[Rfam]
RNA sequence: AAAGUCGAGUUAUGGAAGGAGAAGCUAGAUCCACCAUAUAGCGAGUCUUGUGCUGCUGAAGGUAACGACAGUAGUAAAGCGUAGACAGUGAAACAUUCGAGCCGAAACCAAAUGGUGAACGUGAUAUCCCCGAAAGGCUUAUAUAGUGGAAGCCGAUAUGUUAGACUACAUAGUAGGCAAAAGAAGAUUGGAGGUCAAACUAGUAAAAAUCCAAAAAUUUUCAACCACCGGGGUCACAGGCGU
Dot-bracket structure: ..........(((((..(((.........))).)))))..((..((((((((((((((..(....)..))))))))...)).)))).))......................................(((((.............((((..(((..((((........))))...)))....(((((((..........................)))))))..)))))))))..........
Numbered sequence: 001a002a003a004g005u006c007g008a009g010u011u012a013u014g015g016a017a018g019g020a021g022a023a024g025c026u027a028g029a030u031c032c033a034c035c036a037u038a039u040a041g042c043g044a045g046u047c048u049u050g051u052g053c054u055g056c057u058g059a060a061g062g063u064a065a066c067g068a069c070a071g072u073a074g075u076a077a078a079g080c081g082u083a084g085a086c087a088g089u090g091a092a093a094c095a096u097u098c099g100a101g102c103c104g105a106a107a108c109c110a111a112a113u114g115g116u117g118a119a120c121g122u123g124a125u126a127u128c129c130c131c132g133a134a135a136g137g138c139u140u141a142u143a144u145a146g147u148g149g150a151a152g153c154c155g156a157u158a159u160g161u162u163a164g165a166c167u168a169c170a171u172a173g174u175a176g177g178c179a180a181a182a183g184a185a186g187a188u189u190g191g192a193g194g195u196c197a198a199a200c201u202a203g204u205a206a207a208a209a210u211c212c213a214a215a216a217a218u219u220u221u222c223a224a225c226c227a228c229c230g231g232g233g234u235c236a237c238a239g240g241c242g243u
Stems, first nucleotide, its partner, number of pairs: 011038005018032003041089002045086004049081002051076008061066001128233005146228004152178003157172004183222007

Record summary: Rfam assigns this 243-nucleotide RNA sequence from Orientia tsutsugamushi to the family "Group II catalytic intron D1-D4-6".